[Rfam]
RNA: mir-9193 microRNA precursor family
RNA sequence: CAUGCAUGGGUGGGGUCCCUCGGCCUGGCCUGCGCCCUCUCACAAUUCGGGACCCCUUGGGGGAUGUUGGAGAGCCGGUUUCAGCUGGAUCCCUGCAGGCCAGGCUGAGGAACCCCACCCGUGCAUG
Numbered sequence: 001c002a003u004g005c006a007u008g009g010g011u012g013g014g015g016u017c018c019c020u021c022g023g024c025c026u027g028g029c030c031u032g033c034g035c036c037c038u039c040u041c042a043c044a045a046u047u048c049g050g051g052a053c054c055c056c057u058u059g060g061g062g063g064a065u066g067u068u069g070g071a072g073a074g075c076c077g078g079u080u081u082c083a084g085c086u087g088g089a090u091c092c093c094u095g096c097a098g099g100c101c102a103g104g105c106u107g108a109g110g111a112a113c114c115c116c117a118c119c120c121g122u123g124c125a126u127g
Base pairs, nucleotide, nucleotide: 003125004124006122008120009119010118012116013115014114015113016112018110019109020108021107022106023105024104025103027101028100029099030098031097032096033095034094